Shown here is a 67-nucleotide RNA from Yersinia pestis, a member of the family "isrJ Hfq binding RNA".
RNA sequence: ACAAUUACCGCCAACGGUAACAAACUGAGUUAUCCAAAAUCUGAGCCUCGCCAUCGUGCGGGGUUUU
Numbered sequence: 001a002c003a004a005u006u007a008c009c010g011c012c013a014a015c016g017g018u019a020a021c022a023a024a025c026u027g028a029g030u031u032a033u034c035c036a037a038a039a040u041c042u043g044a045g046c047c048u049c050g051c052c053a054u055c056g057u058g059c060g061g062g063g064u065u066u067u
Stems, first nucleotide, its partner, number of pairs: 016034004021029001043066009

The source organism's lineage runs through Bacteria, Pseudomonadati, Yersiniaceae, Yersinia pestis and Yersinia pestis subsp. pestis bv. Antiqua. Rfam's curators put it in the seed alignment.